[Rfam]
RNA sequence: CAGGGACAUCCUUUUAUCAUCGGGAAUACGAAAGAAAAGGGAGAAUAAACGCCUUACUUAUAGAACAGUGAAGAAUGCCACAAUUUUACGCUUUGAAAAUGAUGACACUAUCACAGUUGGCGC
Numbered sequence: 001c002a003g004g005g006a007c008a009u010c011c012u013u014u015u016a017u018c019a020u021c022g023g024g025a026a027u028a029c030g031a032a033a034g035a036a037a038a039g040g041g042a043g044a045a046u047a048a049a050c051g052c053c054u055u056a057c058u059u060a061u062a063g064a065a066c067a068g069u070g071a072a073g074a075a076u077g078c079c080a081c082a083a084u085u086u087u088a089c090g091c092u093u094u095g096a097a098a099a100u101g102a103u104g105a106c107a108c109u110a111u112c113a114c115a116g117u118u119g120g121c122g123c
Base pairs, nucleotide, nucleotide: 003055004054005053007051009042010041011040012039013038014037015036017035018034020031021030022029061088062087063086064085065084068081069080070079089122090121091120092119100113101112102111103110104109
Background:
ES239 sRNA: a 123-nucleotide RNA sequence from Shigella flexneri. It is annotated as a small RNA. Differentially expressed under several chemical stress and fermentation conditions. The family's consensus secondary structure was predicted with RNAfold. It is one of the family's seed sequences. The source organism's lineage runs through Bacteria, Pseudomonadota, Gammaproteobacteria, Enterobacteriaceae and Shigella flexneri. Gene Ontology term of the family: fermentation.